Shown here is a 107-nucleotide RNA from Triticum urartu, a member of the family "Small nucleolar RNA Z118/Z121/Z120".
Nucleotides: 107
Stems, first nucleotide, its partner, number of pairs: 001107002004104004036065001038063004
Number, partner (000 for none) and nucleotide at each position: 001107u002106c003000u004104u005103u006102g007101c008000u009000g010000u011000g012000a013000u014000g015000a016000g017000a018000u019000c020000a021000a022000a023000g024000g025000a026000c027000g028000g029000u030000a031000u032000c033000u034000g035000a036065g037000a038063a039062a040061g041060g042000u043000g044000u045000a046000c047000u048000u049000u050000a051000u052000a053000a054000a055000g056000u057000c058000c059000u060041c061040u062039u063038u064000c065036c066000u067000u068000g069000a070000u071000u072000a073000u074000a075000c076000c077000u078000c079000c080000a081000a082000a083000a084000c085000u086000g087000a088000u089000c090000a091000a092000a093000u094000u095000u096000u097000c098000u099000g100000a101007g102006c103005a104004a105000c106002g107001a

For this family Rfam cites "The high diversity of snoRNAs in plants: identification and comparative study of 120 snoRNA genes from Oryza sativa" (Chen et al., Nucleic Acids Res, 2003). It is annotated as a C/D-box small nucleolar RNA. Rfam 15.1 lists 435 matches to the family in 31 species. Lineage of the source: Eukaryota > Liliopsida > Pooideae > Triticeae > Triticum. A search with the family's covariance model found it, with a score of 79 bits.